[Rfam]
RNA sequence: AAGGAUCUAUCGAAGCUUGUGCAUUGAUAUUAUCUUUGCAGAAGUCAAAACAAUCCAAAAGAAAAUUCAGUGAUUCGGGUGGCACUUUUAUUUUUCAUAAAUAAUCGUGUCUAUCGAAUCUCUUACACUC
Numbered sequence: 001a002a003g004g005a006u007c008u009a010u011c012g013a014a015g016c017u018u019g020u021g022c023a024u025u026g027a028u029a030u031u032a033u034c035u036u037u038g039c040a041g042a043a044g045u046c047a048a049a050a051c052a053a054u055c056c057a058a059a060a061g062a063a064a065a066u067u068c069a070g071u072g073a074u075u076c077g078g079g080u081g082g083c084a085c086u087u088u089u090a091u092u093u094u095u096c097a098u099a100a101a102u103a104a105u106c107g108u109g110u111c112u113a114u115c116g117a118a119u120c121u122c123u124u125a126c127a128c129u130c
Stems, first nucleotide, its partner, number of pairs: 003056004015045003020040004026034003069123002072120007081111005088104006
The family of this 130-nucleotide RNA from Tetrahymena elliotti is "Tetrahymena snoRNA TtnuHACA9". The base pairs follow the family's consensus structure, which was predicted with mfold. On this family, see Andersen and Nielsen, Nucleic Acids Res 2012: "Experimental identification and analysis of macronuclear non-coding RNAs from the ciliate Tetrahymena thermophila". The organism belongs to Tetrahymena elliotti, within Eukaryota.